[Rfam]
RNA: MIR2670 microRNA precursor family
RNA sequence: UCGGGGUAAAAUAGUGAGAAGCCGACAUGGGGAAGUGAUCGACCAUUGGGAUAAGUUUAAAUUUGCUUUUUUUACUCCAUAAACUUUUUACCGUGGGUAUAAAAAAAACCAGAUUUAAAUUUAGCCCAAGGGUUGAUCAUGUAUUUUCUCCAAGAAGGUUGCUCCCUAUUUUACCCCAA
Dot-bracket structure: ..((((((((((((.(((.((((..(.((((((((..((.((((.(((((.((((.(((((((((.(((((((((((.((............))))))...))))))).))))))))).)))).))))).)))...).))....)))))))).)..)))).))).))))))))))))..
Numbered sequence: 001u002c003g004g005g006g007u008a009a010a011a012u013a014g015u016g017a018g019a020a021g022c023c024g025a026c027a028u029g030g031g032g033a034a035g036u037g038a039u040c041g042a043c044c045a046u047u048g049g050g051a052u053a054a055g056u057u058u059a060a061a062u063u064u065g066c067u068u069u070u071u072u073u074a075c076u077c078c079a080u081a082a083a084c085u086u087u088u089u090a091c092c093g094u095g096g097g098u099a100u101a102a103a104a105a106a107a108a109c110c111a112g113a114u115u116u117a118a119a120u121u122u123a124g125c126c127c128a129a130g131g132g133u134u135g136a137u138c139a140u141g142u143a144u145u146u147u148c149u150c151c152a153a154g155a156a157g158g159u160u161g162c163u164c165c166c167u168a169u170u171u172u173a174c175c176c177c178a179a
Stems, first nucleotide, its partner, number of pairs: 003177012016164003020160004026154001028152008038140002041137001042133003046129005052123004057118009067108007074098004079094002